[Rfam]
RNA: 6S / SsrS RNA
RNA sequence: CACUCCCUGGGGUGUUCGACAGGCGUUCAAGUCCCUCGAGCCGAUAAGUACACCCCUGGAGGCCUUCUGUGAUGCUGGUGAGCAUGUCCGUUUAGCGGAAAGCCUGAUGCAUUCGAAGGCCCCCACCUUGAACCUUAGGGUUCAGGGCCACGAUCGUUACCGGCACUCCCGGGGAGCCC
Numbered sequence: 001c002a003c004u005c006c007c008u009g010g011g012g013u014g015u016u017c018g019a020c021a022g023g024c025g026u027u028c029a030a031g032u033c034c035c036u037c038g039a040g041c042c043g044a045u046a047a048g049u050a051c052a053c054c055c056c057u058g059g060a061g062g063c064c065u066u067c068u069g070u071g072a073u074g075c076u077g078g079u080g081a082g083c084a085u086g087u088c089c090g091u092u093u094a095g096c097g098g099a100a101a102g103c104c105u106g107a108u109g110c111a112u113u114c115g116a117a118g119g120c121c122c123c124c125a126c127c128u129u130g131a132a133c134c135u136u137a138g139g140g141u142u143c144a145g146g147g148c149c150a151c152g153a154u155c156g157u158u159a160c161c162g163g164c165a166c167u168c169c170c171g172g173g174g175a176g177c178c179c
Stems, first nucleotide, its partner, number of pairs: 003176009012166004017162002033147003038143005058124002062120006069114001071113005082103002087099004